[Rfam]
RNA sequence: GUCUUAGGGUGGAAAGUUGUAACGCUGAUGGUUUUUUAAACACAUAAGCGUAUAGCUUUUCCCCUUUAGAU
Numbered sequence: 001g002u003c004u005u006a007g008g009g010u011g012g013a014a015a016g017u018u019g020u021a022a023c024g025c026u027g028a029u030g031g032u033u034u035u036u037u038a039a040a041c042a043c044a045u046a047a048g049c050g051u052a053u054a055g056c057u058u059u060u061c062c063c064c065u066u067u068a069g070a071u
Base pairs, nucleotide, nucleotide: 003069004068006066007065009063011061013059014058017055018054019053020052021051025048026047028045029044030043
The record is a 71-nucleotide RNA from Ignelater luminosus, which matches "mir-965 microRNA precursor family" in Rfam. The family's consensus secondary structure was predicted with RNAalifold. Taxonomically the source falls in Ignelater (Eukaryota, Altocrustacea, Hexapoda, Insecta). On this family, see Huang et al., Bioorg Khim 2012: "The regulation of silkworm fibroin L chain production by miRNA-965 and miRNA-1926 in insect cells". The family has 16 seed sequences and 224 matches in Rfam 15.1. Its family is annotated with RISC complex and miRNA-mediated post-transcriptional gene silencing in the Gene Ontology.